[Rfam]
RNA sequence: AGAUGGAAAGCGUCGCCGGCAUCAGUCGCCCCCCGCCGGCGGCACUUUCCGGGGACGGGUCAAAAGUCCGUUCCCUUGAUUGCCUUCCGAUCGGAAUAGCCCCCCUCCGUCGGAAGGACUAGGGCGGUGGAGUUGCCCCAAGCUUCACCGCCC
Numbered sequence: 001a002g003a004u005g006g007a008a009a010g011c012g013u014c015g016c017c018g019g020c021a022u023c024a025g026u027c028g029c030c031c032c033c034c035g036c037c038g039g040c041g042g043c044a045c046u047u048u049c050c051g052g053g054g055a056c057g058g059g060u061c062a063a064a065a066g067u068c069c070g071u072u073c074c075c076u077u078g079a080u081u082g083c084c085u086u087c088c089g090a091u092c093g094g095a096a097u098a099g100c101c102c103c104c105c106u107c108c109g110u111c112g113g114a115a116g117g118a119c120u121a122g123g124g125c126g127g128u129g130g131a132g133u134u135g136c137c138c139c140a141a142g143c144u145u146c147a148c149c150g151c152c153c
Stems, first nucleotide, its partner, number of pairs: 009046002012043004017038004052074009075122001080121001083117002087113004093108003123152012